[Rfam]
RNA sequence: GUACACCCCAGAGGAGUGAUAUCUGAGAACACAAGGAAGGGUUUUGAUGCUAUAAAGGAUAUGGCUAAUGCACUUUUGUGUUCUCAGGUCACCCCUUUGGGGAUUCC
Numbered sequence: 001g002u003a004c005a006c007c008c009c010a011g012a013g014g015a016g017u018g019a020u021a022u023c024u025g026a027g028a029a030c031a032c033a034a035g036g037a038a039g040g041g042u043u044u045u046g047a048u049g050c051u052a053u054a055a056a057g058g059a060u061a062u063g064g065c066u067a068a069u070g071c072a073c074u075u076u077u078g079u080g081u082u083c084u085c086a087g088g089u090c091a092c093c094c095c096u097u098u099g100g101g102g103a104u105u106c107c
Base pairs, nucleotide, nucleotide: 007101008100011097012096013095014094016092017091018090019089025085026084027083028082029081030080031079032078033077034076
A member of the RNA family "MIR398 microRNA precursor family" from Juglans regia, 107 nucleotides long. Gene Ontology terms of the family: miRNA-mediated post-transcriptional gene silencing and RISC complex. The family's consensus secondary structure was predicted with WAR.